[Rfam]
RNA sequence: AAAGCUUAAGCUAUUAUUACCCUCCGAUUGCUUAUUCAGACCGCCCAAAUCUAGAGGCGGUUU
Numbered sequence: 001a002a003a004g005c006u007u008a009a010g011c012u013a014u015u016a017u018u019a020c021c022c023u024c025c026g027a028u029u030g031c032u033u034a035u036u037c038a039g040a041c042c043g044c045c046c047a048a049a050u051c052u053a054g055a056g057g058c059g060g061u062u063u
Stems, first nucleotide, its partner, number of pairs: 003012003038063008
Shown here is a 63-nucleotide sequence from Stanieria cyanosphaera, a member of the family "Nitrogen stress-induced RNA 4". A search with the family's covariance model found it, with a score of 58 bits. Former name SyR12, is a cyanobacterial non-coding RNA which plays role in the regulation of Glutamine synthetase (GS), a key enzyme in biological nitrogen assimilation. NsiR4 interacts with the 5'UTR of the mRNA of the GS inactivating factor IF7 (gifA mRNA) and reduces its expression. NsiR4 expression is under positive control of the nitrogen control transcription factor (NtcA). NsR4 is a first example of an sRNA controlling the assimilation of a micronutrient. The literature on the family includes a 2015 paper in Proc Natl Acad Sci U S A by Klahn et al., "The sRNA NsiR4 is involved in nitrogen assimilation control in cyanobacteria by targeting glutamine synthetase inactivating factor IF7". Taxonomically the source falls in Stanieria cyanosphaera (Bacteria, Bacillati, Cyanobacteriota, Stanieria).